[Rfam]
RNA sequence: ACGCGUGCUCCGGGGUCGGUGAAAGUCCGAACCGGCGGUGACAGUCCGCGACCCGGUCGUCGUCCACACGAGACGCCCGGCUGACCCGGUGGAACUCCGGGACCGACGGUGAAAGUCCGGAUGGGAGGCAGCACGCGC
Numbered sequence: 001a002c003g004c005g006u007g008c009u010c011c012g013g014g015g016u017c018g019g020u021g022a023a024a025g026u027c028c029g030a031a032c033c034g035g036c037g038g039u040g041a042c043a044g045u046c047c048g049c050g051a052c053c054c055g056g057u058c059g060u061c062g063u064c065c066a067c068a069c070g071a072g073a074c075g076c077c078c079g080g081c082u083g084a085c086c087c088g089g090u091g092g093a094a095c096u097c098c099g100g101g102a103c104c105g106a107c108g109g110u111g112a113a114a115g116u117c118c119g120g121a122u123g124g125g126a127g128g129c130a131g132c133a134c135g136c137g138c
Stems, first nucleotide, its partner, number of pairs: 003136007010127001017029003031116002033105002035049004044103002053080004085101005107119003
RNA: FMN riboswitch aptamer (RFN element)
Organism: Haloactinopolyspora alba